RNA sequence: CAAAGAUGCUAUUUGGUGGAUGGAUUGGCUUGAGUGGCUAUGAAGGGCGUGCCAAGCUACGAUAAGCCUCGGGGAGGUGCAUGGGACCUUCGAUCCGAGGAUUCCCGAAUGGGACUUCCUUUUAAAAAUCCUUUGGAUUUUUAAAGUUCCAGAUUUAUUUGGAACGCGAAACCUUUGAAUUGAAACAUCUUAGUAAAAGGGCGAAAAGAAAUCAAUUGAGAUCUCCUUAUUAGCAGCGAGCGAAAAGGAGUUAGUCCAAACCGAAUCUUUAAUGGUAACAUUAGAGAGAUGUGGGGUUUGUUACAAAAGUAUGCUGACCUUUCAAUAUUAGUUGAAGUAGUCUGGAAUGGCUUAAUAUAGAGGGUGAUAUUCCCGUAAACGAAGUAUAUGGGAAGGUUAGUUUUUGUUACCGAGUACCUGGCCUUGACAGUGGCUAGGGAAUAUGGGGGAAAGCAGCCUCCAAGACUAAAUACAACUCAUGACCGAUAGUGAAUAGUAUCGUGAGAGAAAUCUGAAAAGAACCCUGAAAGGGGUGUGAAAAGUGCCUGAAACCAAAUAGUUACAAACG
Number, nucleotide and partner (000 for none) at each position: 001c000002a000003a000004a000005g000006a000007u000008g560009c559010u558011a557012u556013u555014u554015g553016g552017u000018g000019g000020a000021u000022g546023g512024a511025u000026u000027g484028g483029c481030u000031u479032g478033a477034g476035u474036g473037g000038c000039u000040a000041u000042g000043a000044a000045g106046g105047g104048c061049g060050u059051g000052c000053c000054a000055a000056g000057c000058u000059a050060c049061g048062a000063u000064a000065a000066g000067c100068c099069u098070c097071g096072g095073g000074g000075a000076g088077g087078u086079g000080c000081a000082u000083g000084g000085g000086a078087c077088c076089u000090u000091c000092g000093a000094u000095c072096c071097g070098a069099g068100g067101a000102u000103u000104c047105c046106c045107g000108a000109a000110u000111g120112g119113g118114a000115c000116u000117u000118c113119c112120u111121u000122u000123u000124a000125a000126a000127a000128a000129u000130c000131c000132u000133u000134u000135g000136g000137a000138u000139u000140u000141u000142u000143a000144a000145a000146g000147u164148u163149c162150c161151a160152g159153a158154u000155u000156u000157a000158u153159u152160u151161g150162g149163a148164a147165c000166g000167c000168g000169a000170a000171a000172c200173c199174u198175u197176u196177g000178a000179a000180u000181u000182g189183a188184a000185a000186c000187a000188u183189c182190u000191u000192a000193g000194u000195a000196a176197a175198a174199g173200g172201g000202c000203g000204a000205a000206a000207a000208g000209a000210a000211a000212u219213c218214a000215a000216u000217u000218g213219a212220g000221a000222u000223c250224u249225c248226c247227u246228u000229a000230u000231u000232a000233g241234c240235a000236g000237c000238g000239a000240g234241c233242g000243a000244a000245a000246a227247g226248g225249a224250g223251u000252u000253a467254g466255u465256c464257c000258a000259a000260a000261c294262c293263g292264a000265a000266u000267c000268u000269u000270u000271a282272a281273u280274g279275g000276u000277a000278a000279c274280a273281u272282u271283a000284g000285a000286g000287a000288g000289a000290u000291g000292u263293g262294g261295g000296g000297u000298u000299u000300g000301u000302u000303a000304c000305a405306a404307a403308a402309g000310u000311a000312u000313g000314c000315u000316g000317a397318c396319c395320u394321u000322u000323c000324a000325a000326u000327a000328u000329u000330a000331g380332u379333u378334g000335a000336a000337g353338u000339a352340g351341u350342c349343u000344g000345g000346a000347a000348u000349g342350g341351c340352u339353u337354a000355a000356u360357a000358u000359a000360g356361a000362g374363g373364g372365u000366g000367a000368u000369a000370u000371u000372c364373c363374c362375g000376u000377a000378a333379a332380c331381g000382a000383a000384g000385u000386a000387u000388a000389u000390g000391g000392g000393a000394a320395g319396g318397u317398u000399a000400g000401u000402u308403u307404u306405u305406g000407u000408u000409a000410c000411c000412g000413a000414g000415u000416a000417c438418c437419u436420g435421g434422c433423c432424u000425u000426g000427a000428c000429a000430g000431u000432g423433g422434c421435u420436a419437g418438g417439g000440a000441a000442u000443a000444u000445g461446g460447g459448g458449g457450a000451a000452a000453g000454c000455a000456g000457c449458c448459u447460c446461c445462a000463a000464g256465a255466c254467u253468a000469a000470a000471u000472a000473c036474a035475a000476c034477u033478c032479a031480u000481g029482a000483c028484c027485g000486a000487u000488a000489g000490u000491g000492a000493a000494u000495a000496g000497u000498a000499u506500c505501g000502u000503g000504a000505g500506a499507g000508a000509a000510a000511u024512c023513u000514g000515a000516a000517a000518a000519g000520a000521a000522c000523c000524c000525u000526g000527a000528a000529a000530g000531g000532g000533g000534u000535g000536u000537g000538a000539a000540a000541a000542g000543u000544g000545c000546c022547u000548g000549a000550a000551a000552c016553c015554a014555a013556a012557u011558a010559g009560u008561u000562a000563c000564a000565a000566a000567c000568g000
RNA: Archaeal large subunit ribosomal RNA, nucleotides 10 to 577
Organism: uncultured marine crenarchaeote AD1000-325-A12